[Rfam]
RNA sequence: UGUCUAUGCCCUCCUUGGGCGUUUCCUCCCUAGACUUCGACCGCGUCGUGCGAACGAUGCGGUCUUUUUUUGAAAUCG
Numbered sequence: 001u002g003u004c005u006a007u008g009c010c011c012u013c014c015u016u017g018g019g020c021g022u023u024u025c026c027u028c029c030c031u032a033g034a035c036u037u038c039g040a041c042c043g044c045g046u047c048g049u050g051c052g053a054a055c056g057a058u059g060c061g062g063u064c065u066u067u068u069u070u071u072g073a074a075a076u077c078g
Stems, first nucleotide, its partner, number of pairs: 008020004040063009
RNA: Makes More Granules Regulator RNA (mmgR)